[Rfam]
Nucleotides: 054
Base pairs, nucleotide, nucleotide: 001054002053003052008049011046013045014044015042016041017040018039019038020037022035023034024033025032026031
Number, partner (000 for none) and nucleotide at each position: 001054a002053a003052a004000g005000u006000c007000u008049c009000c010000u011046a012000u013045g014044c015042c016041a017040c018039a019038g020037c021000c022035a023034u024033g025032g026031a027000u028000u029000g030000g031026u032025u033024c034023a035022u036000c037020g038019c039018u040017g041016u042015g043000u044014g045013u046011u047000u048000u049008g050000c051000a052003u053002u054001u